[Rfam]
RNA sequence: GAAAAGGCAGGUGAGAAUCCUGCCCGCCGAAAGCCUAAGGAUUCCUGGGGAAGGCUCGUCCGCCCAGGGUAAGCCGGGGCCUAAGCCGAGGCCGAAAGGCGUAGGUGAUGGGGAAUCGGUUGAGAAUCCGAUGCCACCGGUAGGCCGGUUGAGGAUGGGGUGACGCAGGAGGGUAGGCCAAGCGCGCGGCUGGAAAAGCGCGUCCAAGCCGGUAGGGUGUGGGGCAGGCAAAUCCGUCCCACGGUAAGCCCGAGAGGUGAUGGGGAGGGAAAUAAAAGUACCGAAGUGGCUGAACCCAAACUGCCAAGAAAAACCUCUAACGAGGAAUACCGGUGCCCGUACCGCAAACCGACACAGGUAGGCGAGGAGAGAAUCCUCAGGCGCG
Numbered sequence: 001g002a003a004a005a006g007g008c009a010g011g012u013g014a015g016a017a018u019c020c021u022g023c024c025c026g027c028c029g030a031a032a033g034c035c036u037a038a039g040g041a042u043u044c045c046u047g048g049g050g051a052a053g054g055c056u057c058g059u060c061c062g063c064c065c066a067g068g069g070u071a072a073g074c075c076g077g078g079g080c081c082u083a084a085g086c087c088g089a090g091g092c093c094g095a096a097a098g099g100c101g102u103a104g105g106u107g108a109u110g111g112g113g114a115a116u117c118g119g120u121u122g123a124g125a126a127u128c129c130g131a132u133g134c135c136a137c138c139g140g141u142a143g144g145c146c147g148g149u150u151g152a153g154g155a156u157g158g159g160g161u162g163a164c165g166c167a168g169g170a171g172g173g174u175a176g177g178c179c180a181a182g183c184g185c186g187c188g189g190c191u192g193g194a195a196a197a198g199c200g201c202g203u204c205c206a207a208g209c210c211g212g213u214a215g216g217g218u219g220u221g222g223g224g225c226a227g228g229c230a231a232a233u234c235c236g237u238c239c240c241a242c243g244g245u246a247a248g249c250c251c252g253a254g255a256g257g258u259g260a261u262g263g264g265g266a267g268g269g270a271a272a273u274a275a276a277a278g279u280a281c282c283g284a285a286g287u288g289g290c291u292g293a294a295c296c297c298a299a300a301c302u303g304c305c306a307a308g309a310a311a312a313a314c315c316u317c318u319a320a321c322g323a324g325g326a327a328u329a330c331c332g333g334u335g336c337c338c339g340u341a342c343c344g345c346a347a348a349c350c351g352a353c354a355c356a357g358g359u360a361g362g363c364g365a366g367g368a369g370a371g372a373a374u375c376c377u378c379a380g381g382c383g384c385g
Stems, first nucleotide, its partner, number of pairs: 006024006025383004033363004039343002044068006053061002075339004080111002085106003089102001091100003115132005135335008145325001153321001157317005165304004171297003176291005182203006204263002208258003215251003219242007227235002267282002270279001349358002365377004
RNA: Bacterial large subunit ribosomal RNA, nucleotides 1375 to 1759